[Rfam]
RNA sequence: CGCUUGCGGCCAGACUUGCCCGCGGUUGCUCAGCCCGCCUUUUGGCGGGUGCACUCUUCCGCGGUCAGGCCAGCAUCGGUUUGGGCGGUCGGAUAAAGGCGCCGGGAACGUGGCCUCCCCUCGGGGAGGUGUUAUAGCCCGGCGCGCAAUGCGGCCAGCCCGGACCGAGGUUCGCGCUUUGCUAGGAUGCUGGCGUAAUGGCCGUAAGCGGCCCGUCUUGAAACACGG
Numbered sequence: 001c002g003c004u005u006g007c008g009g010c011c012a013g014a015c016u017u018g019c020c021c022g023c024g025g026u027u028g029c030u031c032a033g034c035c036c037g038c039c040u041u042u043u044g045g046c047g048g049g050u051g052c053a054c055u056c057u058u059c060c061g062c063g064g065u066c067a068g069g070c071c072a073g074c075a076u077c078g079g080u081u082u083g084g085g086c087g088g089u090c091g092g093a094u095a096a097a098g099g100c101g102c103c104g105g106g107a108a109c110g111u112g113g114c115c116u117c118c119c120c121u122c123g124g125g126g127a128g129g130u131g132u133u134a135u136a137g138c139c140c141g142g143c144g145c146g147c148a149a150u151g152c153g154g155c156c157a158g159c160c161c162g163g164a165c166c167g168a169g170g171u172u173c174g175c176g177c178u179u180u181g182c183u184a185g186g187a188u189g190c191u192g193g194c195g196u197a198a199u200g201g202c203c204g205u206a207a208g209c210g211g212c213c214c215g216u217c218u219u220g221a222a223a224c225a226c227g228g
Stems, first nucleotide, its partner, number of pairs: 001210012017067002020064005071192007213228004

This 228-nucleotide part of an RNA from Venturia inaequalis belongs to the Rfam family "Eukaryotic large subunit ribosomal RNA". Taxonomically the source falls in Venturia (Eukaryota, Dikarya, saccharomyceta, leotiomyceta). The base pairs follow the family's consensus structure, which is taken from published work. The match comes from Rfam's covariance-model search (3191 bits).